This 136-nucleotide RNA sequence from Paenibacillus psychroresistens belongs to the Rfam family "c-di-AMP riboswitch aptamer (ydaO/yuaA leader)".

[Rfam]
RNA sequence: AAACAUUAAGUGCCGAAUUCCUGUAACAAGGAAACGGGGGAACCAUUCUUGGGUGAAUUGAUCUUGAUUUAAAGGGAUCAUAGGGAACCUUCAACCGAACCCUCAAGCUAACCUCGUAGGCGACCUGGAAGGAGUA
Numbered sequence: 001a002a003a004c005a006u007u008a009a010g011u012g013c014c015g016a017a018u019u020c021c022u023g024u025a026a027c028a029a030g031g032a033a034a035c036g037g038g039g040g041a042a043c044c045a046u047u048c049u050u051g052g053g054u055g056a057a058u059u060g061a062u063c064u065u066g067a068u069u070u071a072a073a074g075g076g077a078u079c080a081u082a083g084g085g086a087a088c089c090u091u092c093a094a095c096c097g098a099a100c101c102c103u104c105a106a107g108c109u110a111a112c113c114u115c116g117u118a119g120g121c122g123a124c125c126u127g128g129a130a131g132g133a134g135u136a
Stems, first nucleotide, its partner, number of pairs: 011122004018033005034117006045049001051102003059080007083096002
Overview
Gene Ontology terms of the family: cyclic-di-AMP binding and regulation of gene expression. The source organism's lineage runs through Bacteria, Bacillati, Bacillota, Paenibacillaceae and Paenibacillus. This family represents a conserved RNA structure found upstream of the ydaO and yuaA genes in Bacillus subtilis and related genes in other bacteria. The ydaO/yuaA element is thought to act as a genetic 'off' switch for the ydaO and yuaA genes in its native state. It is believed that the element may be triggered during osmotic shock leading to activation of ydaO, a predicted amino acid transporter gene, and members of the yuaA-yubG operon which code for KtrA and KtrB K+ transporters.